RNA sequence: UACUUUUGCACGGUCUUAUAAUAGCUGUAAGACAUACAUAAAAAUCAUUAAACAAAUAUUGGAAUG
Numbered sequence: 001u002a003c004u005u006u007u008g009c010a011c012g013g014u015c016u017u018a019u020a021a022u023a024g025c026u027g028u029a030a031g032a033c034a035u036a037c038a039u040a041a042a043a044a045u046c047a048u049u050a051a052a053c054a055a056a057u058a059u060u061g062g063a064a065u066g
Stems, first nucleotide, its partner, number of pairs: 014032006
Shown here is a 66-nucleotide RNA, a member of the family "S15-Flavobacteria ribosomal protein leader".
The family's consensus secondary structure is taken from published work.
The family is grouped with related families in Rfam's "Ribosomal Protein S15 Leader clan".
The family's RNA type in Rfam is cis-regulatory leader.